[Rfam]
RNA sequence: AGCUCCCUAGUGCUUACCAUAGGCUGCGUUCUACCACUGACUCAAAGGGAACAGAUAAACAUGCCCUGUAUACAACUCAGUCUAGGCCCUGUUUCUGGUCUGUAUUGUAAAUGGGGAGGCAUGG
Numbered sequence: 001a002g003c004u005c006c007c008u009a010g011u012g013c014u015u016a017c018c019a020u021a022g023g024c025u026g027c028g029u030u031c032u033a034c035c036a037c038u039g040a041c042u043c044a045a046a047g048g049g050a051a052c053a054g055a056u057a058a059a060c061a062u063g064c065c066c067u068g069u070a071u072a073c074a075a076c077u078c079a080g081u082c083u084a085g086g087c088c089c090u091g092u093u094u095c096u097g098g099u100c101u102g103u104a105u106u107g108u109a110a111a112u113g114g115g116g117a118g119g120c121a122u123g124g
Base pairs, nucleotide, nucleotide: 002052004050005049006048007047008046021042022041026037028035064116065115066114067113068112069111078102079101080100082098083097084096085095086094
A member of the RNA family "Small nucleolar RNA SNORA51" from Spermophilus dauricus, 124 nucleotides long. From the family's description: ACA51 is a member of the H/ACA class of snoRNA that guide the sites of modification of uridines to pseudouridines. It is annotated as an H/ACA-box small nucleolar RNA. Its family is annotated with nucleolus and RNA processing in the Gene Ontology. Lineage of the source: Eukaryota > Gnathostomata > Tetrapoda > Xerinae > Spermophilus.